[Rfam]
RNA: ASpks TB sRNA
Nucleotides: 072
Stems, first nucleotide, its partner, number of pairs: 015025003032067002035062002040057001042055001044053003
Number, partner (000 for none) and nucleotide at each position: 001000c002000u003000u004000c005000a006000g007000c008000g009000a010000g011000c012000c013000g014000a015025g016024c017023c018000a019000c020000a021000g022000c023017g024016g025015c026000c027000c028000c029000c030000c031000g032067g033066c034000c035062c036061g037000g038000u039000c040057g041000c042055g043000g044053c045052c046051g047000u048000a049000g050000g051046c052045g053044g054000c055042c056000a057040u058000c059000a060000g061036c062035g063000c064000c065000u066033g067032c068000g069000c070000c071000u072000c